Description:
A member of the RNA family "SAH (S-adenosyl-L-homocysteine) riboswitch aptamer" from Dyella sp. OK004, 77 nucleotides long. Gene Ontology terms of the family: S-adenosylhomocysteine metabolic process and regulation of gene expression. NCBI's taxonomy places the organism under Bacteria, Pseudomonadota, Lysobacterales, Rhodanobacteraceae, Dyella. Rfam 15.1 lists 1,354 matches to the family in 1,132 species.
RNA sequence: CGGCCCGAGGGGUGCUGCGACGGACCUGUUCCGCCACGCUCGGCCCGGAUCCAUCCAGACAAGGGCGCCCUCCAGCA
Numbered sequence: 001c002g003g004c005c006c007g008a009g010g011g012g013u014g015c016u017g018c019g020a021c022g023g024a025c026c027u028g029u030u031c032c033g034c035c036a037c038g039c040u041c042g043g044c045c046c047g048g049a050u051c052c053a054u055c056c057a058g059a060c061a062a063g064g065g066c067g068c069c070c071u072c073c074a075g076c077a
Base pairs, nucleotide, nucleotide: 002046003045005043006042007041008040021033022032023031024030